[Rfam]
RNA: S15-Halobacteria ribosomal protein leader
RNA sequence: UUGGGAACAGCACGGCCGCAAAUCUGACUUGCCGUCUCUAGACGGCUUGGGAUUGCGGAAGUGU
Number, nucleotide and partner (000 for none) at each position: 001u000002u000003g000004g000005g000006a000007a000008c000009a000010g064011c063012a062013c061014g000015g000016c058017c057018g056019c055020a054021a053022a000023u000024c051025u050026g000027a000028c000029u000030u000031g046032c045033c044034g043035u042036c041037u000038c000039u000040a000041g036042a035043c034044g033045g032046c031047u000048u000049g000050g025051g024052a000053u021054u020055g019056c018057g017058g016059a000060a000061g013062u012063g011064u010